[Rfam]
RNA sequence: UGAUGCUCAUAACCUGUAACAGCAACUCCAUGUGGAAGUAGAUAUAAUAUUCCGGUGGAGAUGCUGUUAUCUGUAAUGUGUAUCU
Numbered sequence: 001u002g003a004u005g006c007u008c009a010u011a012a013c014c015u016g017u018a019a020c021a022g023c024a025a026c027u028c029c030a031u032g033u034g035g036a037a038g039u040a041g042a043u044a045u046a047a048u049a050u051u052c053c054g055g056u057g058g059a060g061a062u063g064c065u066g067u068u069a070u071c072u073g074u075a076a077u078g079u080g081u082a083u084c085u
Stems, first nucleotide, its partner, number of pairs: 010076001012074001016070008026060006033054003
RNA: mir-194 microRNA precursor family
Organism: Xenopus tropicalis